[Rfam]
This 181-nucleotide sequence belongs to the Rfam family "TUC338". The family's RNA type in Rfam is cis-regulatory element. A reference for the family is Braconi et al. (2011), "Expression and functional role of a transcribed noncoding RNA with an ultraconserved element in hepatocellular carcinoma", Proc Natl Acad Sci U S A.
RNA sequence: UUGAUAGCACCAGAGACUGAAGUCCUCUAUUUAUCCACAGGACAGGUACAGCACGGGGCAGCAGCAGUGCAGGCUUCCCCACAUUGUCCUGCCAAUGUGCCUCAACCCUGCCCUGGAGGGAUCACCUCUAGAGGGUGAAAGGGGUAGUUCAGUCUCCAUGCCCAUUCGAUCCUUGGCCUCU
Numbered sequence: 001u002u003g004a005u006a007g008c009a010c011c012a013g014a015g016a017c018u019g020a021a022g023u024c025c026u027c028u029a030u031u032u033a034u035c036c037a038c039a040g041g042a043c044a045g046g047u048a049c050a051g052c053a054c055g056g057g058g059c060a061g062c063a064g065c066a067g068u069g070c071a072g073g074c075u076u077c078c079c080c081a082c083a084u085u086g087u088c089c090u091g092c093c094a095a096u097g098u099g100c101c102u103c104a105a106c107c108c109u110g111c112c113c114u115g116g117a118g119g120g121a122u123c124a125c126c127u128c129u130a131g132a133g134g135g136u137g138a139a140a141g142g143g144g145u146a147g148u149u150c151a152g153u154c155u156c157c158a159u160g161c162c163c164a165u166u167c168g169a170u171c172c173u174u175g176g177c178c179u180c181u
Stems, first nucleotide, its partner, number of pairs: 002168003007161002013156009024144005030139006038110003048102001051100005057093001065086003113131007